Small nucleolar RNA SNORD75: a 66-nucleotide sequence from Muraenolepis orangiensis.
[Rfam]
RNA sequence: AGUCAAUGAUGAAUUAUUUAAGAGUAGUGGACAGAUGAGAUUUCUGAUAAACUAAAUGCUGAGACU
Numbered sequence: 001a002g003u004c005a006a007u008g009a010u011g012a013a014u015u016a017u018u019u020a021a022g023a024g025u026a027g028u029g030g031a032c033a034g035a036u037g038a039g040a041u042u043u044c045u046g047a048u049a050a051a052c053u054a055a056a057u058g059c060u061g062a063g064a065c066u
Stems, first nucleotide, its partner, number of pairs: 001066004
By type it is a C/D-box small nucleolar RNA. A search with the family's covariance model found it, with a score of 60 bits. Rfam 15.1 lists 767 matches to the family in 616 species. Rfam links the family to the GO terms nucleolus and RNA processing.